This 58-nucleotide RNA sequence belongs to the Rfam family "msiK RNA". The family's consensus secondary structure is taken from published work. The family's RNA type in Rfam is cis-regulatory element.
RNA sequence: AACAGACCCCCCUUUACUCGGAUCGUCCGGCACGUUCCUGCCGGUGAAGGAGACAAAC
Numbered sequence: 001a002a003c004a005g006a007c008c009c010c011c012c013u014u015u016a017c018u019c020g021g022a023u024c025g026u027c028c029g030g031c032a033c034g035u036u037c038c039u040g041c042c043g044g045u046g047a048a049g050g051a052g053a054c055a056a057a058c
Stems, first nucleotide, its partner, number of pairs: 010050002014047003027044006